[Rfam]
RNA: IS605-orfB-II RNA
RNA sequence: CAUGAUUAGCCGAGAGCUAGGAUUGUAUAGAGGGUAGUAGCAGUCGCCUCAACUCCGACUUGCAAAUAAAACAUUUUGUUUGUAAGUAAGGUGAGAAACAACGAUAAAGUUGGAAACUUUAAUUUUACUAAGAAAUUAAGGAACUGU
Numbered sequence: 001c002a003u004g005a006u007u008a009g010c011c012g013a014g015a016g017c018u019a020g021g022a023u024u025g026u027a028u029a030g031a032g033g034g035u036a037g038u039a040g041c042a043g044u045c046g047c048c049u050c051a052a053c054u055c056c057g058a059c060u061u062g063c064a065a066a067u068a069a070a071a072c073a074u075u076u077u078g079u080u081u082g083u084a085a086g087u088a089a090g091g092u093g094a095g096a097a098a099c100a101a102c103g104a105u106a107a108a109g110u111u112g113g114a115a116a117c118u119u120u121a122a123u124u125u126u127a128c129u130a131a132g133a134a135a136u137u138a139a140g141g142a143a144c145u146g147u
Stems, first nucleotide, its partner, number of pairs: 006020005032049004040147004053095003058087010070075001099112004117141009